[Rfam]
RNA sequence: UGUGACAAUGAUGAGUUGCACUAUUAGUCGGGCUGCUGAUUGCAGUGGCACAGCAGACCUGUCCUGACAACCUAUGGUGACACCCAUUGUGCACAGGGGCCAUCUGAGUCACC
Number, nucleotide and partner (000 for none) at each position: 001u000002g000003u000004g112005a000006c000007a109008a000009u000010g000011a000012u000013g000014a000015g000016u000017u000018g000019c000020a000021c000022u000023a000024u067025u066026a065027g063028u061029c000030g059031g058032g000033c056034u055035g054036c000037u000038g000039a000040u000041u050042g049043c048044a000045g000046u000047g000048g043049c042050a041051c000052a000053g000054c035055a034056g033057a000058c031059c030060u000061g028062u000063c027064c000065u026066g025067a024068c000069a000070a000071c000072c000073u000074a000075u000076g000077g000078u000079g000080a000081c000082a000083c000084c000085c000086a000087u000088u000089g000090u000091g000092c000093a000094c000095a000096g000097g000098g000099g000100c000101c000102a000103u000104c000105u000106g000107a000108g000109u007110c000111a000112c004113c000